Shown here is a 134-nucleotide RNA from Urocolius indicus, a member of the family "Small nucleolar RNA SNORA55". The family's consensus secondary structure was predicted with PFOLD. It scores 92 bits against the family's covariance model. The family's RNA type in Rfam is H/ACA-box small nucleolar RNA. Rfam describes the family as follows. ACA55 is a member of the H/ACA class of snoRNA that guide the sites of modification of uridines to pseudouridines. Gene Ontology terms of the family: RNA processing and nucleolus.
RNA sequence: GCAUCGGAAUCUUUCCCACUCCGGGUGCCCCAGUACUGGAGUUGGGGAUACACGAUGCAACAGCAACGCAGGGGAAAUCCAGACGAGCUCCCUUUCACCUCAGUGGGACUUGUCUCUACACCUUUGCAACAUUU
Numbered sequence: 001g002c003a004u005c006g007g008a009a010u011c012u013u014u015c016c017c018a019c020u021c022c023g024g025g026u027g028c029c030c031c032a033g034u035a036c037u038g039g040a041g042u043u044g045g046g047g048a049u050a051c052a053c054g055a056u057g058c059a060a061c062a063g064c065a066a067c068g069c070a071g072g073g074g075a076a077a078u079c080c081a082g083a084c085g086a087g088c089u090c091c092c093u094u095u096c097a098c099c100u101c102a103g104u105g106g107g108a109c110u111u112g113u114c115u116c117u118a119c120a121c122c123u124u125u126g127c128a129a130c131a132u133u134u
Stems, first nucleotide, its partner, number of pairs: 001058005013048006019041001021039002068127006081115007095106003
The family has 29 seed sequences and 1,476 matches in Rfam 15.1.